[Rfam]
RNA sequence: UUAUUAAAGACACCCACCAUCACCAAACUUCCAAAGCCCGAAAGCGAUUUUCGGGCUUUU
Numbered sequence: 001u002u003a004u005u006a007a008a009g010a011c012a013c014c015c016a017c018c019a020u021c022a023c024c025a026a027a028c029u030u031c032c033a034a035a036g037c038c039c040g041a042a043a044g045c046g047a048u049u050u051u052c053g054g055g056c057u058u059u060u
Base pairs, nucleotide, nucleotide: 034058035057036056037055038054039053040052041051042050
Caulobacter sRNA CC0196: a 60-nucleotide RNA from Asticcacaulis sp. AC466. Taxonomically the source falls in Asticcacaulis (Bacteria, Pseudomonadati, Pseudomonadota, Alphaproteobacteria).